[Rfam]
RNA sequence: CCCGCUCCUGUAAACAUCCUACACUCAGCUGUGGCGCACGGCUGGCUGGGAGGCGGGUGUUUACGUCAGCUGG
Numbered sequence: 001c002c003c004g005c006u007c008c009u010g011u012a013a014a015c016a017u018c019c020u021a022c023a024c025u026c027a028g029c030u031g032u033g034g035c036g037c038a039c040g041g042c043u044g045g046c047u048g049g050g051a052g053g054c055g056g057g058u059g060u061u062u063a064c065g066u067c068a069g070c071u072g073g
Stems, first nucleotide, its partner, number of pairs: 002072001004070003009065011022052001024050007

Rfam assigns this 73-nucleotide sequence from Phyllostomus discolor to the family "mir-30 microRNA precursor family". The base pairs follow the family's consensus structure, which was predicted with PFOLD. This family consists of the mammalian microRNA (miRNA) precursor mir-30a. The match comes from Rfam's covariance-model search (54 bits).